Shown here is a 71-nucleotide sequence from Rhizobium sp. RU20A, a member of the family "Makes More Granules Regulator RNA (mmgR)".
RNA sequence: UGUAAAUACCCUCCUUGGGUGUUUCCUCCCUAGACUUGCCGCGCCAACAGGCGCGGUUUUUUUUGCCCGCA
Dot-bracket structure: .......((((.....))))..................(((((((....)))))))...............

It is annotated as a small RNA. The base pairs follow the family's consensus structure. SuhB later renamed mmgR (makes more granules regulator) was a putative non-coding RNA found multiple times in the Agrobacterium tumefaciens genome and related alpha-proteobacteria. Other non-coding RNAs uncovered in the same analysis include: speF, ybhL, metA, and serC.Several studies inSinorhizobium meliloti showed that suhB element is indeed a non-coding RNA:firstly it was detected on Northern blot and called Sm8RNA, secondly in an RNAseq study referred to as SmelC689.The mutant phenotype's (strain lacking the small RNA) cytoplasm contains higher content of polyhydroxybutyrate (PBH)storage granules than wild type strain. The sRNA is required to limit the PBH intracellular accumulation when the nitrogen-fixing Sinorhizobium meliloti is under condition of surplus carbon in relation to nitrogen. It has been renamed to mmgR. Further study confirmed that mmgR fine-tunes the regulation of PBH storage.Northern blot confirmed the expression of the sRNA in other rhizobia species.